[Rfam]
RNA sequence: UAUGACUACUAGGGGUGCCUGAUUGUGCAGGCUGAGAGGGGAACGAAGCAUUCUCCGACUCUUAUGGACCUGAUCUGGUUAGUACCAGCGGAGGGAAGUAGAAUCGGGCAUUU
Numbered sequence: 001u002a003u004g005a006c007u008a009c010u011a012g013g014g015g016u017g018c019c020u021g022a023u024u025g026u027g028c029a030g031g032c033u034g035a036g037a038g039g040g041g042a043a044c045g046a047a048g049c050a051u052u053c054u055c056c057g058a059c060u061c062u063u064a065u066g067g068a069c070c071u072g073a074u075c076u077g078g079u080u081a082g083u084a085c086c087a088g089c090g091g092a093g094g095g096a097a098g099u100a101g102a103a104u105c106g107g108g109c110a111u112u113u
Stems, first nucleotide, its partner, number of pairs: 006101005011062004017032005039055005069094003075088004